This 37-nucleotide sequence from Cricetulus griseus belongs to the Rfam family "XIST RNA A repeat". A search with the family's covariance model found it, with a score of 42 bits. The literature on the family includes a 2011 paper in RNA by Duszczyk et al., "The Xist RNA A-repeat comprises a novel AUCG tetraloop fold and a platform for multimerization".
RNA sequence: UGGUCCAUCGGGACCUUGGAUACCUGGGUUUAGUGUU
Dot-bracket structure: ..((((....))))..(((....)))...........
Numbered sequence: 001u002g003g004u005c006c007a008u009c010g011g012g013a014c015c016u017u018g019g020a021u022a023c024c025u026g027g028g029u030u031u032a033g034u035g036u037u
Stems, first nucleotide, its partner, number of pairs: 003014004017026003